A member of the RNA family "Small nucleolar RNA snoR136" from Macleaya cordata, 147 nucleotides long.
[Rfam]
RNA sequence: UAAGCUUCACUCUCUUGUAUACAUUCACGGAAUGCUUCUAGGUUAAUCUCAUUCUAGUGGCAUUUUUUUAGGUGAAGCAAUAAAAUUGUUGCCCUCGCUAUCCAGUGCUUCCUUCAUGUUGCAUUUGGACGUUGGGUAACAACAUCU
Numbered sequence: 001u002a003a004g005c006u007u008c009a010c011u012c013u014c015u016u017g018u019a020u021a022c023a024u025u026c027a028c029g030g031a032a033u034g035c036u037u038c039u040a041g042g043u044u045a046a047u048c049u050c051a052u053u054c055u056a057g058u059g060g061c062a063u064u065u066u067u068u069u070a071g072g073u074g075a076a077g078c079a080a081u082a083a084a085a086u087u088g089u090u091g092c093c094c095u096c097g098c099u100a101u102c103c104a105g106u107g108c109u110u111c112c113u114u115c116a117u118g119u120u121g122c123a124u125u126u127g128g129a130c131g132u133u134g135g136g137u138a139a140c141a142a143c144a145u146c147u
Stems, first nucleotide, its partner, number of pairs: 001082002004078002008074003012071002017067001019065001032063005038057005088140007096131002101129005111118001

The family has 8 seed sequences and 452 matches in Rfam 15.1.
The base pairs follow the family's consensus structure, which was predicted with mfold.
The source organism's lineage runs through Eukaryota, Spermatophyta, Ranunculales, Papaveroideae and Macleaya.